[Rfam]
RNA sequence: UCUGAUCUAGGAUGAGUAUUUUAUUGGUGACUGCUGGAUGAAACCUGCGGAUAUGGGACUGAGAUCAGUG
Numbered sequence: 001u002c003u004g005a006u007c008u009a010g011g012a013u014g015a016g017u018a019u020u021u022u023a024u025u026g027g028u029g030a031c032u033g034c035u036g037g038a039u040g041a042a043a044c045c046u047g048c049g050g051a052u053a054u055g056g057g058a059c060u061g062a063g064a065u066c067a068g069u070g
Base pairs, nucleotide, nucleotide: 002068003067004066005065
A member of the RNA family "Small nucleolar RNA SNORD99" from Carassius auratus, 70 nucleotides long. A reference for the family is Galardi et al. (2002), "Purified box C/D snoRNPs are able to reproduce site-specific 2'-O-methylation of target RNA in vitro", Mol Cell Biol. The family's consensus secondary structure was predicted with RNAalifold. The family's RNA type in Rfam is C/D-box small nucleolar RNA. A search with the family's covariance model found it, with a score of 70 bits. The family is grouped with related families in Rfam's "SNORD58 clan". The source organism's lineage runs through Eukaryota, Gnathostomata, Clupeocephala, Cyprininae and Carassius.